[Rfam]
The record is a 150-nucleotide RNA from Erwinia billingiae, which matches "Leucine operon leader" in Rfam. The family's consensus secondary structure is taken from published work. A search with the family's covariance model found it, with a score of 89 bits. Rfam classes the family as a cis-regulatory leader. About the family: At least 6 amino acid operons are known to be regulated by attenuation. In each a leader sequence of 150-200 bp is found upstream of the first gene in the operon. This leader sequence can assume two different secondary structures known as the terminator and the anti-terminator structure. In each case the leader also codes for very short peptide sequence that is rich in the end product amino acid of the operon. A reference for the family is Kolter and Yanofsky (1982), "Attenuation in amino acid biosynthetic operons", Annu Rev Genet.
RNA sequence: AUGAGGUCUGAAGACAUGAUUCGUACCGCUCGCCUACUCGGUCUACUACUAAACGCAUCCCAAUUGCGCGGUAGACUUGUGGGCGAAGAAAUGAAUCAGUGAUUCAGGCUUACAAACCUAAAGAACCCGCGCCGAUGCGCGGGUUUUUUU
Numbered sequence: 001a002u003g004a005g006g007u008c009u010g011a012a013g014a015c016a017u018g019a020u021u022c023g024u025a026c027c028g029c030u031c032g033c034c035u036a037c038u039c040g041g042u043c044u045a046c047u048a049c050u051a052a053a054c055g056c057a058u059c060c061c062a063a064u065u066g067c068g069c070g071g072u073a074g075a076c077u078u079g080u081g082g083g084c085g086a087a088g089a090a091a092u093g094a095a096u097c098a099g100u101g102a103u104u105c106a107g108g109c110u111u112a113c114a115a116a117c118c119u120a121a122a123g124a125a126c127c128c129g130c131g132c133c134g135a136u137g138c139g140c141g142g143g144u145u146u147u148u149u150u
Stems, first nucleotide, its partner, number of pairs: 004111001006109005013103001015101002017098003027085007046074005054068004122147011